Shown here is a 124-nucleotide sequence from Klebsiella pneumoniae, a member of the family "MicC RNA". Its family is annotated with mRNA binding and sRNA-mediated gene silencing in the Gene Ontology. MicC (previously known as IS063) is located between the ompN and ydbK genes in E. coli. This family of Hfq-associated sRNA is thought to be a regulator of OmpC expression.

RNA sequence: CGCGUUAUAUGCCUUUAUUGUCAUGCCAAUAAUUUAUUGUUGCCGUCUCAUUCUGCGGAAUGAUGUUGUUUAUCGGUAAAACGACAAGCCCGAACGUUGUGUUCGGGCUUUUUUUAUGGACAAA
Dot-bracket structure: ......(((((....)).)))....................((((............................)))).....((.((((((((((.....))))))))))))............
By type it is a small RNA. A reference for the family is Chen et al. (2002), "A bioinformatics based approach to discover small RNA genes in the Escherichia coli genome", Biosystems.